[Rfam]
RNA sequence: ACUGACCAAGGCCACAGCAGAAGUGCUCACAGCACAGCCCAUCCGAUUCCAACAAAUCUGUGAAUUCUUCU
Numbered sequence: 001a002c003u004g005a006c007c008a009a010g011g012c013c014a015c016a017g018c019a020g021a022a023g024u025g026c027u028c029a030c031a032g033c034a035c036a037g038c039c040c041a042u043c044c045g046a047u048u049c050c051a052a053c054a055a056a057u058c059u060g061u062g063a064a065u066u067c068u069u070c071u
Stems, first nucleotide, its partner, number of pairs: 010039003016071002019068004023035003043060001045058004

A member of the RNA family "Mammalian CPEB3 ribozyme" from Alligator mississippiensis, 71 nucleotides long. The source organism's lineage runs through Eukaryota, Vertebrata, Archelosauria, Crocodylia and Alligator.